RNA: FMN riboswitch aptamer (RFN element)
Organism: Trebonia kvetii
RNA sequence: ACACGUUCUCAGGGCGGGGUGAAACUCCCCACCGGCGGUAGUGGCAUCCGGUCCGAGCCGGAUGGCCGAGCCCGCGAGCGCCGCAGCCUCUUCGGAGGCCGCGGGUCGAGCAGAUUCCGGUGCGAUCCCGGAGCCGACGGUCAUAGUCCGGAUGAAAGAGAACGCGA
Numbered sequence: 001a002c003a004c005g006u007u008c009u010c011a012g013g014g015c016g017g018g019g020u021g022a023a024a025c026u027c028c029c030c031a032c033c034g035g036c037g038g039u040a041g042u043g044g045c046a047u048c049c050g051g052u053c054c055g056a057g058c059c060g061g062a063u064g065g066c067c068g069a070g071c072c073c074g075c076g077a078g079c080g081c082c083g084c085a086g087c088c089u090c091u092u093c094g095g096a097g098g099c100c101g102c103g104g105g106u107c108g109a110g111c112a113g114a115u116u117c118c119g120g121u122g123c124g125a126u127c128c129c130g131g132a133g134c135c136g137a138c139g140g141u142c143a144u145a146g147u148c149c150g151g152a153u154g155a156a157a158g159a160g161a162a163c164g165c166g167a
Stems, first nucleotide, its partner, number of pairs: 004164007017029003031147002033136002035075004070134002078111002116132005138150003